Shown here is a 219-nucleotide RNA, a member of the family "IS605-orfB-I RNA". The base pairs follow the family's consensus structure, which is taken from published work. It is annotated as a small RNA.
[Rfam]
RNA sequence: GUCGUAUAAAGAUGUAUUAGAUGCAAGACAAUCUAGCAUUUCCCUUUACGACAUUGUAAAAUAUUAGAAGUUCAAGCAAAAGUAAUUGUUGCAUGGUUAAUAAUCGAAACAAUUUGAGUUUGAACGGAAAAGGUUAACCAUAUGACCUUGUGUUGAAAAACACUAAAAAUGAUCUUAAAUAACAAUUUCUUAAUCUUUGUUAUUUUAAGUUAUGGUUUU
Dot-bracket structure: ((((((.(.((((((..((((((.....).)))))))))))...).)))))).................((((((((......(((((((....((.(...).))..)))))))...)))))))).....[[[[[.(((((((]]]]].(((((....))))).....)....(((((((((((.............)))))).))))).))))))...
Numbered sequence: 001g002u003c004g005u006a007u008a009a010a011g012a013u014g015u016a017u018u019a020g021a022u023g024c025a026a027g028a029c030a031a032u033c034u035a036g037c038a039u040u041u042c043c044c045u046u047u048a049c050g051a052c053a054u055u056g057u058a059a060a061a062u063a064u065u066a067g068a069a070g071u072u073c074a075a076g077c078a079a080a081a082g083u084a085a086u087u088g089u090u091g092c093a094u095g096g097u098u099a100a101u102a103a104u105c106g107a108a109a110c111a112a113u114u115u116g117a118g119u120u121u122g123a124a125c126g127g128a129a130a131a132g133g134u135u136a137a138c139c140a141u142a143u144g145a146c147c148u149u150g151u152g153u154u155g156a157a158a159a160a161c162a163c164u165a166a167a168a169a170u171g172a173u174c175u176u177a178a179a180u181a182a183c184a185a186u187u188u189c190u191u192a193a194u195c196u197u198u199g200u201u202a203u204u205u206u207a208a209g210u211u212a213u214g215g216u217u218u219u
Stems, first nucleotide, its partner, number of pairs: 001052006008045001010041006018035005023029001070125008084114007095105002098102001131148005137216006143169001150163005174209005179203006